[Rfam]
RNA sequence: AUGCGAUGAGUCGAUUGGCUCUUUAGAGCCUUUUGCGCUGAGGAGGUCAACAUUAAAUUGUAACGCAGGAGCGGACCUUGAGUAGUUGUGUGAACCUGCUGCUCUCAUCGAAAGAUGCCUCUUAUCCCUUGCCGUUUGGUAGGGGAUUUUU
Numbered sequence: 001a002u003g004c005g006a007u008g009a010g011u012c013g014a015u016u017g018g019c020u021c022u023u024u025a026g027a028g029c030c031u032u033u034u035g036c037g038c039u040g041a042g043g044a045g046g047u048c049a050a051c052a053u054u055a056a057a058u059u060g061u062a063a064c065g066c067a068g069g070a071g072c073g074g075a076c077c078u079u080g081a082g083u084a085g086u087u088g089u090g091u092g093a094a095c096c097u098g099c100u101g102c103u104c105u106c107a108u109c110g111a112a113a114g115a116u117g118c119c120u121c122u123u124a125u126c127c128c129u130u131g132c133c134g135u136u137u138g139g140u141a142g143g144g145g146a147u148u149u150u151u
Stems, first nucleotide, its partner, number of pairs: 012035003017030005040121004044078004064073003080104007106117004125146009
Dot-bracket structure: ...........(((..(((((....)))))..)))....((((((((................(((....))).)))).(((((((...........))))))).((((....))))))))...(((((((((....))))))))).....